[Rfam]
Source information: Shown here is a 385-nucleotide RNA sequence from Agrobacterium rubi, a member of the family "permuted transfer-messenger RNA". Pairs were carried over by alignment from the consensus structure, which is taken from published work. For this family Rfam cites "Variations on the tmRNA gene" (Mao et al., RNA Biol, 2010). The organism belongs to Agrobacterium, within Bacteria.
RNA sequence: GACAGUAGACGGAAUUCGCAGAUAGCGCUUACGGACGGGGGAUGCGAUGCCCCCCACCUCCACCACAACCACACCCGUCAUGCCUUGCUAGCGUGACGUGGCUCAGACCCAUAAGACCUGUAGAGUUCCUAGCAGGUCGGAUGGAACCGAGGGACCAGUUAUCCGGCUUGAGAGUAUGCCCAGUGUGGAACGGGCCCAUGCUCCUGGUUUCGGAUUUGGCACCUGAGGACAUGCCAGUCUGGAUGGUGUGGUUAUGAUGGGGGUGAAUCAGGAUCGACGUGGUGUGAAGAGGAAUGCUUGCUGUUCGGCAUGAUACCGCCGUUAUCGGGUCAAGAGUGUAGUUGCAAACGACAACAACGCUAUGGAAAUGCGCCUCGCCGCCUAA
Numbered sequence: 001g002a003c004a005g006u007a008g009a010c011g012g013a014a015u016u017c018g019c020a021g022a023u024a025g026c027g028c029u030u031a032c033g034g035a036c037g038g039g040g041g042a043u044g045c046g047a048u049g050c051c052c053c054c055c056a057c058c059u060c061c062a063c064c065a066c067a068a069c070c071a072c073a074c075c076c077g078u079c080a081u082g083c084c085u086u087g088c089u090a091g092c093g094u095g096a097c098g099u100g101g102c103u104c105a106g107a108c109c110c111a112u113a114a115g116a117c118c119u120g121u122a123g124a125g126u127u128c129c130u131a132g133c134a135g136g137u138c139g140g141a142u143g144g145a146a147c148c149g150a151g152g153g154a155c156c157a158g159u160u161a162u163c164c165g166g167c168u169u170g171a172g173a174g175u176a177u178g179c180c181c182a183g184u185g186u187g188g189a190a191c192g193g194g195c196c197c198a199u200g201c202u203c204c205u206g207g208u209u210u211c212g213g214a215u216u217u218g219g220c221a222c223c224u225g226a227g228g229a230c231a232u233g234c235c236a237g238u239c240u241g242g243a244u245g246g247u248g249u250g251g252u253u254a255u256g257a258u259g260g261g262g263g264u265g266a267a268u269c270a271g272g273a274u275c276g277a278c279g280u281g282g283u284g285u286g287a288a289g290a291g292g293a294a295u296g297c298u299u300g301c302u303g304u305u306c307g308g309c310a311u312g313a314u315a316c317c318g319c320c321g322u323u324a325u326c327g328g329g330u331c332a333a334g335a336g337u338g339u340a341g342u343u344g345c346a347a348a349c350g351a352c353a354a355c356a357a358c359g360c361u362a363u364g365g366a367a368a369u370g371c372g373c374c375u376c377g378c379c380g381c382c383u384a385a
Stems, first nucleotide, its partner, number of pairs: 001305005014295004026284003031280003037054005055265007306321004